[Rfam]
RNA sequence: AAUCAUGCGAGUGACUGUGUGAAGGAAGCCGGAGGCAAAAUCCCGGGCCAACGAACAGAAACUGGAUACAAGGCCGGUUGGCAGGACGAGUCUGCACAAAGUGAUGAAGUCCGACCGCGAAGUCAAAUUGGUAAAUCCAGUGGCUACAUGGGAUGAAAGUUAUUGUU
Numbered sequence: 001a002a003u004c005a006u007g008c009g010a011g012u013g014a015c016u017g018u019g020u021g022a023a024g025g026a027a028g029c030c031g032g033a034g035g036c037a038a039a040a041u042c043c044c045g046g047g048c049c050a051a052c053g054a055a056c057a058g059a060a061a062c063u064g065g066a067u068a069c070a071a072g073g074c075c076g077g078u079u080g081g082c083a084g085g086a087c088g089a090g091u092c093u094g095c096a097c098a099a100a101g102u103g104a105u106g107a108a109g110u111c112c113g114a115c116c117g118c119g120a121a122g123u124c125a126a127a128u129u130g131g132u133a134a135a136u137c138c139a140g141u142g143g144c145u146a147c148a149u150g151g152g153a154u155g156a157a158a159g160u161u162a163u164u165g166u167u
Base pairs, nucleotide, nucleotide: 001016003014004013005012006011028167030165031164032163035160036159040154041153042152043151044150045149046145047144048143049142050141062140063139064138065137066136067135073132074131075130077128078127079126081124084112085111086110087109090105091104092103
This 167-nucleotide RNA from Sphaerochaeta pleomorpha belongs to the Rfam family "Group II catalytic intron D1-D4-3". A search with the family's covariance model found it, with a score of 129 bits.